[Rfam]
RNA sequence: GGCCGCCUCCACGGGGCCCACGGGGUACUCCCGAGGAAACACCGCCCUCCCCGCGGCACCGGAGCCCCGCAAGGGGCGCGGGUAGCACCCGCGGCAACGGCACAGAAACGACACGGCUCCACGGGCGAUGACAAUGAUGGGUUCAAACCCGGAGAAACCGUGGAGCACGGUGAAACGGCCGACCUCCGGGGAGCAAGGCCAAACGCGCCGAUGAAGGCCGCGUGAGGUGCGGGUAGGCCGCUAAGCCAAAUGCCCCAUAACAGAAGGCGGGUUAUGUGGGGGCGGCC
Numbered sequence: 001g002g003c004c005g006c007c008u009c010c011a012c013g014g015g016g017c018c019c020a021c022g023g024g025g026u027a028c029u030c031c032c033g034a035g036g037a038a039a040c041a042c043c044g045c046c047c048u049c050c051c052c053g054c055g056g057c058a059c060c061g062g063a064g065c066c067c068c069g070c071a072a073g074g075g076g077c078g079c080g081g082g083u084a085g086c087a088c089c090c091g092c093g094g095c096a097a098c099g100g101c102a103c104a105g106a107a108a109c110g111a112c113a114c115g116g117c118u119c120c121a122c123g124g125g126c127g128a129u130g131a132c133a134a135u136g137a138u139g140g141g142u143u144c145a146a147a148c149c150c151g152g153a154g155a156a157a158c159c160g161u162g163g164a165g166c167a168c169g170g171u172g173a174a175a176c177g178g179c180c181g182a183c184c185u186c187c188g189g190g191g192a193g194c195a196a197g198g199c200c201a202a203a204c205g206c207g208c209c210g211a212u213g214a215a216g217g218c219c220g221c222g223u224g225a226g227g228u229g230c231g232g233g234u235a236g237g238c239c240g241c242u243a244a245g246c247c248a249a250a251u252g253c254c255c256c257a258u259a260a261c262a263g264a265a266g267g268c269g270g271g272u273u274a275u276g277u278g279g280g281g282g283c284g285g286c287c
Base pairs, nucleotide, nucleotide: 001287002286003285005283006282007281008280009279010278011277013256014255015254016253017252021033022032023031024030025029038273039272040271042270043269044268045267046266047193048192049191050190052222053221054220055219056218059189060188061187062186063185064077065076066075067074068073078092079091080090081089082088093184094183098181099180100179101178114169115168117165118164119163120162121161122160123159124158139150140149197239198238199237200236205230206229207228208227209226
Rfam assigns this 287-nucleotide sequence from Desulfurococcaceae archaeon AG1 to the family "Archaeal RNase P". Gene Ontology terms of the family: multimeric ribonuclease P complex, ribonuclease P activity and tRNA processing. Pairs were carried over by alignment from the consensus structure, which is taken from published work. The organism belongs to Desulfurococcaceae, within Archaea. About the family: Ribonuclease P (RNase P) is a ubiquitous endoribonuclease, found in archaea, bacteria and eukarya as well as chloroplasts and mitochondria. Its best characterised activity is the generation of mature 5'-ends of tRNAs by cleaving the 5'-leader elements of precursor-tRNAs. Cellular RNase Ps are ribonucleoproteins. The literature on the family includes a 1998 paper in Annu Rev Biochem by Frank and Pace, "Ribonuclease P: unity and diversity in a tRNA processing ribozyme".